A member of the RNA family "Small nucleolar RNA SNORA28" from Trichechus manatus, 126 nucleotides long. For this family Rfam cites "RNomics: an experimental approach that identifies 201 candidates for novel, small, non-messenger RNAs in mouse" (Huttenhofer et al., EMBO J, 2001). A search with the family's covariance model found it, with a score of 118 bits. About the family: ACA28 is a member of the H/ACA class of snoRNA that guide the sites of modification of uridines to pseudouridines. Clan: SNORA28 clan. The organism belongs to Trichechus manatus, within Eukaryota.
[Rfam]
RNA sequence: AAGCAACACUCAGCGGCAGAUGAUUGAAACUGUCUGACACAAUUUGCGCUUGCUAUAGCAAGAAAAUCUAAACUAUUCUGGAGUCCUCUCCUCAGUGAGACAAGCUGUUAUAUAGACUUAAAUAGU
Numbered sequence: 001a002a003g004c005a006a007c008a009c010u011c012a013g014c015g016g017c018a019g020a021u022g023a024u025u026g027a028a029a030c031u032g033u034c035u036g037a038c039a040c041a042a043u044u045u046g047c048g049c050u051u052g053c054u055a056u057a058g059c060a061a062g063a064a065a066a067u068c069u070a071a072a073c074u075a076u077u078c079u080g081g082a083g084u085c086c087u088c089u090c091c092u093c094a095g096u097g098a099g100a101c102a103a104g105c106u107g108u109u110a111u112a113u114a115g116a117c118u119u120a121a122a123u124a125g126u
Stems, first nucleotide, its partner, number of pairs: 009048001011046001013040001015038001017036006064119002067116004074112003079107003087100004